[Rfam]
The record is a 133-nucleotide RNA sequence from Castor canadensis, which matches "Small nucleolar RNA SNORA9" in Rfam. The source organism's lineage runs through Eukaryota, Opisthokonta, Dipnotetrapodomorpha, Boreoeutheria and Castor. About the family: ACA9 is a member of the H/ACA class of snoRNA that guide the sites of modification of uridines to pseudouridines. The base pairs follow the family's consensus structure, which was predicted with PFOLD. Rfam links the family to the GO terms RNA processing and nucleolus.
RNA sequence: UAGCAAGCCUCCAGCAUGCCUGAGUUUAGUUGACUCAGUGCAUUCCUGCAGUGCUUGCAAGAGUGUUCUGAAAUGGUUUGAGGCCUUGCUGUCUGUCUUCUUCAGAGCAUGGUCGUAGACAUUUUACACAGUU
Numbered sequence: 001u002a003g004c005a006a007g008c009c010u011c012c013a014g015c016a017u018g019c020c021u022g023a024g025u026u027u028a029g030u031u032g033a034c035u036c037a038g039u040g041c042a043u044u045c046c047u048g049c050a051g052u053g054c055u056u057g058c059a060a061g062a063g064u065g066u067u068c069u070g071a072a073a074u075g076g077u078u079u080g081a082g083g084c085c086u087u088g089c090u091g092u093c094u095g096u097c098u099u100c101u102u103c104a105g106a107g108c109a110u111g112g113u114c115g116u117a118g119a120c121a122u123u124u125u126a127c128a129c130a131g132u133u
Base pairs, nucleotide, nucleotide: 003058004057005056006055007054008053017042018041019040022036023035024034025033026032069126070125071124072123073122084112085111087109088108089107093105094104095103